[Rfam]
RNA sequence: CCUCUUCAACUCCCCGCGCGGCUUGCUUAUAUUCGUUCUGUUCCCUCGGGAACUAUGGACAUAAACGCGCUCGUAAUAAACGGCUCGGACCCGGGGGCGGUACCCGGCGUCUCCACCAAAUCACCUUCGGUGUGUUCCUUCGUUUGGGGAAUGGAUCGAGUUUGUGGGGACGAAAUAGGAUCGACGGACGUCUAAAGGGGUUAGCUUUGUCUCGGCUGUCUGCCACCGUUAUCGGCGAAACUAGUACAAUUGCAAACGACAAUCGUGCUCCGGUUGCUCUGGCUGCGUAAGCAGUUCGAGUCGAACCGACUUUAAGCCCUGUCGCCUAGCCGCGGCAGGCGGGGUUCGCAGGUACCUGGCAACAGAAACCUGCACU
Numbered sequence: 001c002c003u004c005u006u007c008a009a010c011u012c013c014c015c016g017c018g019c020g021g022c023u024u025g026c027u028u029a030u031a032u033u034c035g036u037u038c039u040g041u042u043c044c045c046u047c048g049g050g051a052a053c054u055a056u057g058g059a060c061a062u063a064a065a066c067g068c069g070c071u072c073g074u075a076a077u078a079a080a081c082g083g084c085u086c087g088g089a090c091c092c093g094g095g096g097g098c099g100g101u102a103c104c105c106g107g108c109g110u111c112u113c114c115a116c117c118a119a120a121u122c123a124c125c126u127u128c129g130g131u132g133u134g135u136u137c138c139u140u141c142g143u144u145u146g147g148g149g150a151a152u153g154g155a156u157c158g159a160g161u162u163u164g165u166g167g168g169g170a171c172g173a174a175a176u177a178g179g180a181u182c183g184a185c186g187g188a189c190g191u192c193u194a195a196a197g198g199g200g201u202u203a204g205c206u207u208u209g210u211c212u213c214g215g216c217u218g219u220c221u222g223c224c225a226c227c228g229u230u231a232u233c234g235g236c237g238a239a240a241c242u243a244g245u246a247c248a249a250u251u252g253c254a255a256a257c258g259a260c261a262a263u264c265g266u267g268c269u270c271c272g273g274u275u276g277c278u279c280u281g282g283c284u285g286c287g288u289a290a291g292c293a294g295u296u297c298g299a300g301u302c303g304a305a306c307c308g309a310c311u312u313u314a315a316g317c318c319c320u321g322u323c324g325c326c327u328a329g330c331c332g333c334g335g336c337a338g339g340c341g342g343g344g345u346u347c348g349c350a351g352g353u354a355c356c357u358g359g360c361a362a363c364a365g366a367a368a369c370c371u372g373c374a375c376u
Stems, first nucleotide, its partner, number of pairs: 040053005057212005067205002069201004081190002085187003091107005108172009213228003219238002222236003342357004348373006
A member of the RNA family "Alphaproteobacteria transfer-messenger RNA" from Tritonibacter aquimaris, 376 nucleotides long. NCBI's taxonomy places the organism under Bacteria, Alphaproteobacteria, Rhodobacterales, Paracoccaceae, Tritonibacter. It scores 299 bits against the family's covariance model.